The family of this 144-nucleotide RNA sequence from Thermaerobacillus caldiproteolyticus is "ylbH leader". The literature on the family includes a 2004 paper in Proc Natl Acad Sci U S A by Barrick et al., "New RNA motifs suggest an expanded scope for riboswitches in bacterial genetic control". By type it is a cis-regulatory leader. The pairing is the family consensus, mapped onto this sequence. Rfam's curators write: This family is a putative regulatory RNA structure that is found upstream of the ylbH gene in B. subtilis and related low GC Gram-positive bacteria.
RNA sequence: GAAAAAAAAUCCCUGCAGUCUCCUGCAGGGGCCUUUUACGCUUACUUGUUCCCGCGCAUCAAAAGGAACGCGUAAGCCAAAGGAAAAAAGGGAGAGGAGAAACCGGAGGAAGAACUUAUGGGGAAACGUAAGUCUUCUCCGUGG
Numbered sequence: 001g002a003a004a005a006a007a008a009a010u011c012c013c014u015g016c017a018g019u020c021u022c023c024u025g026c027a028g029g030g031g032c033c034u035u036u037u038a039c040g041c042u043u044a045c046u047u048g049u050u051c052c053c054g055c056g057c058a059u060c061a062a063a064a065g066g067a068a069c070g071c072g073u074a075a076g077c078c079a080a081a082g083g084a085a086a087a088a089a090g091g092g093a094g095a096g097g098a099g100a101a102a103c104c105g106g107a108g109g110a111a112g113a114a115c116u117u118a119u120g121g122g123g124a125a126a127c128g129u130a131a132g133u134c135u136u137c138u139c140c141g142u143g144g
Stems, first nucleotide, its partner, number of pairs: 011030008032091004040077006104141004109137004114133005